RNA: Small nucleolar RNA SNORD24
Organism: Adineta steineri
RNA sequence: CGUCGGUGAUGAAUACAUAUAGUUGCUACUCUCGACCUUUUAAGGAAUGACGAAUUAACUAUUCCACUAAGAUCUCUGAGACG
Numbered sequence: 001c002g003u004c005g006g007u008g009a010u011g012a013a014u015a016c017a018u019a020u021a022g023u024u025g026c027u028a029c030u031c032u033c034g035a036c037c038u039u040u041u042a043a044g045g046a047a048u049g050a051c052g053a054a055u056u057a058a059c060u061a062u063u064c065c066a067c068u069a070a071g072a073u074c075u076c077u078g079a080g081a082c083g
Stems, first nucleotide, its partner, number of pairs: 001083004